[Rfam]
RNA sequence: GAGGCAUGAUGAGGAAACUCGUUUACUUCUGAGAAUUUAUUCUCUGAGCGAAGUAAAACCUCCUACUCAUUCUGA
Numbered sequence: 001g002a003g004g005c006a007u008g009a010u011g012a013g014g015a016a017a018c019u020c021g022u023u024u025a026c027u028u029c030u031g032a033g034a035a036u037u038u039a040u041u042c043u044c045u046g047a048g049c050g051a052a053g054u055a056a057a058a059c060c061u062c063c064u065a066c067u068c069a070u071u072c073u074g075a
Base pairs, nucleotide, nucleotide: 006070007069008068009067026050
RNA: Small nucleolar RNA Z105